[Rfam]
RNA sequence: UGCCUUUGUGUUGCCCAUUCAUUCCUGUCCAGAGUGAGUGUGGUGUCAGAAAAGGCAAACAGGAAUCCUUGCUUAAACUGUCAAAGGAGCUGGUUGUUUACCUUCCUCCUCCCUGUUUUUGCAAGGACAAAA
Numbered sequence: 001u002g003c004c005u006u007u008g009u010g011u012u013g014c015c016c017a018u019u020c021a022u023u024c025c026u027g028u029c030c031a032g033a034g035u036g037a038g039u040g041u042g043g044u045g046u047c048a049g050a051a052a053a054g055g056c057a058a059a060c061a062g063g064a065a066u067c068c069u070u071g072c073u074u075a076a077a078c079u080g081u082c083a084a085a086g087g088a089g090c091u092g093g094u095u096g097u098u099u100a101c102c103u104u105c106c107u108c109c110u111c112c113c114u115g116u117u118u119u120u121g122c123a124a125g126g127a128c129a130a131a132a
Stems, first nucleotide, its partner, number of pairs: 002056006009048002012045004016040008068125005075118003082115002086111002088107002092102002
Small nucleolar RNA SNORA13: a 132-nucleotide RNA sequence from Urocolius indicus. ACA13 is a member of the H/ACA class of snoRNA that guide the sites of modification of uridines to pseudouridines. Its family is annotated with RNA processing and nucleolus in the Gene Ontology. The family has 50 seed sequences and 1,034 matches in Rfam 15.1. Rfam classes the family as an H/ACA-box small nucleolar RNA.